This 114-nucleotide RNA from Roseivirga pacifica belongs to the Rfam family "TPP riboswitch aptamer (THI element)". Vitamin B(1) in its active form thiamin pyrophosphate (TPP) is an essential coenzyme that is synthesised by coupling of pyrimidine and thiazole moieties in bacteria.
RNA sequence: UCACAAAAUAAGGGGUGCCCUUUUCCGAGUAAUCGGGAUGAAAUUCGGGCUGAGAUUAUACCCAUUGAACCUGAUGCAGGUAAUGCUGUCGCAGGGAUAUAUGGUGGUCUAACA
Numbered sequence: 001u002c003a004c005a006a007a008a009u010a011a012g013g014g015g016u017g018c019c020c021u022u023u024u025c026c027g028a029g030u031a032a033u034c035g036g037g038a039u040g041a042a043a044u045u046c047g048g049g050c051u052g053a054g055a056u057u058a059u060a061c062c063c064a065u066u067g068a069a070c071c072u073g074a075u076g077c078a079g080g081u082a083a084u085g086c087u088g089u090c091g092c093a094g095g096g097a098u099a100u101a102u103g104g105u106g107g108u109c110u111a112a113c114a
Base pairs, nucleotide, nucleotide: 006102008100009099010098012063013062014061016058017050018049019048020047070095071094072093073092076089077088078087079086
Taxonomically the source falls in Roseivirga (Bacteria, Bacteroidota, Cytophagia, Roseivirgaceae).